[Rfam]
RNA sequence: GCUGGUCAAGCCAGGUAGUGAAUGGCUCGGUUCGAGAAGCCGACGAAGGACGUGGCAAGCUGCGAUAAGCUUGGGCGAGGCGCAUGCAGCCUUUGAGCCCAAGAUUUCCGAAUGCGACUUCGUGACCUGUUUCGACAGGUCAUGCCGAGAGGCAAGGCACACGCGGUGAACUGAAACAUCUUAGUAGCCGCAGGAAAAGAAAUCAACCGAGAUUCCCUUAGUAGCGGCGAGCGGAAGGGGAAUACGCGCAAACUGAACGCAGCUCCGAGAGGAACUGUGGAUGUGGGUUUGGCCGUCUUUGGAACCACGCUUCCUAAUCGAAGUCUGCUGGAAAGCAGCACCGUAGAGAGUGAUAGUCUCGUAGACUAUGGAAGUACCGUUCUUAGACGUGCCGAGAGUAGCAUGGGUUGGAAAUCCUGUGCGAACACGGGAGGCACUACGUCUUCCAACGCUAAAUACUUCUCGAGUCCGAUAGCGCACUAAGUACUGUGAAGGAAAGCUGAAAAGCACCCCUAGAAAGGGGUUGAAAAGAGCCUGAAACUAUCUGGUGGUAGGUUA
Numbered sequence: 001g002c003u004g005g006u007c008a009a010g011c012c013a014g015g016u017a018g019u020g021a022a023u024g025g026c027u028c029g030g031u032u033c034g035a036g037a038a039g040c041c042g043a044c045g046a047a048g049g050a051c052g053u054g055g056c057a058a059g060c061u062g063c064g065a066u067a068a069g070c071u072u073g074g075g076c077g078a079g080g081c082g083c084a085u086g087c088a089g090c091c092u093u094u095g096a097g098c099c100c101a102a103g104a105u106u107u108c109c110g111a112a113u114g115c116g117a118c119u120u121c122g123u124g125a126c127c128u129g130u131u132u133c134g135a136c137a138g139g140u141c142a143u144g145c146c147g148a149g150a151g152g153c154a155a156g157g158c159a160c161a162c163g164c165g166g167u168g169a170a171c172u173g174a175a176a177c178a179u180c181u182u183a184g185u186a187g188c189c190g191c192a193g194g195a196a197a198a199g200a201a202a203u204c205a206a207c208c209g210a211g212a213u214u215c216c217c218u219u220a221g222u223a224g225c226g227g228c229g230a231g232c233g234g235a236a237g238g239g240g241a242a243u244a245c246g247c248g249c250a251a252a253c254u255g256a257a258c259g260c261a262g263c264u265c266c267g268a269g270a271g272g273a274a275c276u277g278u279g280g281a282u283g284u285g286g287g288u289u290u291g292g293c294c295g296u297c298u299u300u301g302g303a304a305c306c307a308c309g310c311u312u313c314c315u316a317a318u319c320g321a322a323g324u325c326u327g328c329u330g331g332a333a334a335g336c337a338g339c340a341c342c343g344u345a346g347a348g349a350g351u352g353a354u355a356g357u358c359u360c361g362u363a364g365a366c367u368a369u370g371g372a373a374g375u376a377c378c379g380u381u382c383u384u385a386g387a388c389g390u391g392c393c394g395a396g397a398g399u400a401g402c403a404u405g406g407g408u409u410g411g412a413a414a415u416c417c418u419g420u421g422c423g424a425a426c427a428c429g430g431g432a433g434g435c436a437c438u439a440c441g442u443c444u445u446c447c448a449a450c451g452c453u454a455a456a457u458a459c460u461u462c463u464c465g466a467g468u469c470c471g472a473u474a475g476c477g478c479a480c481u482a483a484g485u486a487c488u489g490u491g492a493a494g495g496a497a498a499g500c501u502g503a504a505a506a507g508c509a510c511c512c513c514u515a516g517a518a519a520g521g522g523g524u525u526g527a528a529a530a531g532a533g534c535c536u537g538a539a540a541c542u543a544u545c546u547g548g549u550g551g552u553a554g555g556u557u558a
Stems, first nucleotide, its partner, number of pairs: 010549009024535001025500002029470002031467006038460002048109003051064003070103006079091003114123003143154004162193001163191005173180002203210002214241005224232002244453001246452003253286003264273003294389004302382004318365002323339001325338004342346001348360003401422007429447005487494002